[Rfam]
RNA sequence: AGCUUUGCACAGGGGCAGUAUUGUAGUCAGUGAGGUUUAUCCGAGGCGUGAUCAAUGCUAAUUGAAGACUUUUCCCAGUACCCCACCAUGACAGCUUGAAAUGUAGUUGACAUUGGCAAUUUUUGACAGUCUCUACAAAGA
Numbered sequence: 001a002g003c004u005u006u007g008c009a010c011a012g013g014g015g016c017a018g019u020a021u022u023g024u025a026g027u028c029a030g031u032g033a034g035g036u037u038u039a040u041c042c043g044a045g046g047c048g049u050g051a052u053c054a055a056u057g058c059u060a061a062u063u064g065a066a067g068a069c070u071u072u073u074c075c076c077a078g079u080a081c082c083c084c085a086c087c088a089u090g091a092c093a094g095c096u097u098g099a100a101a102u103g104u105a106g107u108u109g110a111c112a113u114u115g116g117c118a119a120u121u122u123u124u125g126a127c128a129g130u131c132u133c134u135a136c137a138a139a140g141a
Stems, first nucleotide, its partner, number of pairs: 020052005026047003034042002086116002088113003092109005130141003
Shown here is a 141-nucleotide RNA from Carlito syrichta, a member of the family "U4 spliceosomal RNA". From the family's description: U4 small nuclear RNA (U4 snRNA) is a component of the major U2-dependent spliceosome. The family's consensus secondary structure is taken from published work. A search with the family's covariance model found it, with a score of 97 bits. Rfam links the family to the GO terms U4 snRNP and spliceosomal tri-snRNP complex assembly.